[Rfam]
Shown here is a 54-nucleotide sequence from Hucho hucho, a member of the family "UnaL2 LINE 3' element". For this family Rfam cites "Solution structure of an RNA stem-loop derived from the 3' conserved region of eel LINE UnaL2" (Baba et al., RNA, 2004). The eel long interspersed element (LINE) UnaL2 and its partner short interspersed element (SINE) share a conserved 3' tail containing a stem-loop that is critical for their retrotransposition. By type it is a cis-regulatory element. It scores 56 bits against the family's covariance model. The base pairs follow the family's consensus structure, which is taken from published work.

RNA sequence: UGCAUGCAUGGCUGUAAGUUGCUUUGGAUAAAAGUGUCUACUAAAUUACAUACU
Number, nucleotide and partner (000 for none) at each position: 001u000002g000003c000004a000005u000006g000007c000008a000009u000010g000011g000012c000013u043014g041015u040016a039017a000018g000019u000020u036021g035022c034023u033024u032025u031026g000027g000028a000029u000030a000031a025032a024033a023034g022035u021036g020037u000038c000039u016040a015041c014042u000043a013044a000045a000046u000047u000048a000049c000050a000051u000052a000053c000054u000